[Rfam]
RNA sequence: GAAUGGUCCAAGGGCAAUAGUGUUUACAACUAAACUGAUCACAAGCAGUUAGAUUUCCUAGUUCCUUCUCCUCUUCCACUGUUUCAUUUGACUAUUUUUUU
Numbered sequence: 001g002a003a004u005g006g007u008c009c010a011a012g013g014g015c016a017a018u019a020g021u022g023u024u025u026a027c028a029a030c031u032a033a034a035c036u037g038a039u040c041a042c043a044a045g046c047a048g049u050u051a052g053a054u055u056u057c058c059u060a061g062u063u064c065c066u067u068c069u070c071c072u073c074u075u076c077c078a079c080u081g082u083u084u085c086a087u088u089u090g091a092c093u094a095u096u097u098u099u100u101u
Stems, first nucleotide, its partner, number of pairs: 001097008010089002014085001016080001018078001020076001028063003032059001
This 101-nucleotide RNA from Callithrix jacchus belongs to the Rfam family "Y RNA".
It is annotated as a non-coding RNA gene.
Lineage of the source: Eukaryota > Eumetazoa > Euteleostomi > Mammalia > Callithrix.
The base pairs follow the family's consensus structure, which is taken from published work.